[Rfam]
RNA sequence: UGGCUCAUUUUUAUGGGAGGUGGGCUCAGCCUACCAGAACUCUCCUCAGCCCAGACUAGAGGGACCAGGCGCCCUUCUCCAUAGGAAAGGUAUUUAAGUAAAGAGCCUCACCUGGGCUGUCUUGGCCUUGGAUUU
Numbered sequence: 001u002g003g004c005u006c007a008u009u010u011u012u013a014u015g016g017g018a019g020g021u022g023g024g025c026u027c028a029g030c031c032u033a034c035c036a037g038a039a040c041u042c043u044c045c046u047c048a049g050c051c052c053a054g055a056c057u058a059g060a061g062g063g064a065c066c067a068g069g070c071g072c073c074c075u076u077c078u079c080c081a082u083a084g085g086a087a088a089g090g091u092a093u094u095u096a097a098g099u100a101a102a103g104a105g106c107c108u109c110a111c112c113u114g115g116g117c118u119g120u121c122u123u124g125g126c127c128u129u130g131g132a133u134u135u
Base pairs, nucleotide, nucleotide: 002051003050004049005048007046015044016043017042018041019040021038024035061129062128063127065125067123068122069121073116074115075114083108084107085106
This 135-nucleotide RNA sequence from Tupaia belangeri belongs to the Rfam family "Small Cajal body specific RNA 21". Its family is annotated with nucleolus, Cajal body and RNA processing in the Gene Ontology. scaRNAs are a specific class of small nuclear RNAs which localise to the Cajal bodies and guide the modification of RNA polymerase II transcribed spliceosomal RNAs U1, U2, U4, U5 and U12.